[Rfam]
RNA sequence: UUUUUGCGCUGAUGACUACACAAGGACGGUAUCUGAGCAAGGCACUAGCCUUGCAUGAUUAUACCUAAACUGAGACUAAUGUCUGAGCAAAUU
Numbered sequence: 001u002u003u004u005u006g007c008g009c010u011g012a013u014g015a016c017u018a019c020a021c022a023a024g025g026a027c028g029g030u031a032u033c034u035g036a037g038c039a040a041g042g043c044a045c046u047a048g049c050c051u052u053g054c055a056u057g058a059u060u061a062u063a064c065c066u067a068a069a070c071u072g073a074g075a076c077u078a079a080u081g082u083c084u085g086a087g088c089a090a091a092u093u
Stems, first nucleotide, its partner, number of pairs: 003091005037054006